[Rfam]
RNA: RNase MRP
Organism: Ceutorhynchus assimilis
RNA sequence: GGGUCCUACCGAGUCCAACUCGCGAAGCCACAUACAGAGCGCUUGUCGCUCACAAAUGCUUUGAGAAAGGUCCCCGGACCCCGGGUAGAAAGUACCGCCGGUUGCGACCGGUUAGCCUCGCCCUACGUCGUGUCAUUGUCAGGGUGCAGUACCGGCAGGGGCGUUGGUGUUUGUCCGAGCACAGUUAUGUUUGGAGUCCGGAUCCUUUCGGGAUCUGGAUUACAAAACGGGGCCCACUCCGGCAGGACU
Numbered sequence: 001g002g003g004u005c006c007u008a009c010c011g012a013g014u015c016c017a018a019c020u021c022g023c024g025a026a027g028c029c030a031c032a033u034a035c036a037g038a039g040c041g042c043u044u045g046u047c048g049c050u051c052a053c054a055a056a057u058g059c060u061u062u063g064a065g066a067a068a069g070g071u072c073c074c075c076g077g078a079c080c081c082c083g084g085g086u087a088g089a090a091a092g093u094a095c096c097g098c099c100g101g102u103u104g105c106g107a108c109c110g111g112u113u114a115g116c117c118u119c120g121c122c123c124u125a126c127g128u129c130g131u132g133u134c135a136u137u138g139u140c141a142g143g144g145u146g147c148a149g150u151a152c153c154g155g156c157a158g159g160g161g162c163g164u165u166g167g168u169g170u171u172u173g174u175c176c177g178a179g180c181a182c183a184g185u186u187a188u189g190u191u192u193g194g195a196g197u198c199c200g201g202a203u204c205c206u207u208u209c210g211g212g213a214u215c216u217g218g219a220u221u222a223c224a225a226a227a228c229g230g231g232g233c234c235c236a237c238u239c240c241g242g243c244a245g246g247a248c249u
Stems, first nucleotide, its partner, number of pairs: 002249006009242003014195004018190002023063006037051005069234002072232004084096004097112006114168001116166001119163005131157004143153004197219008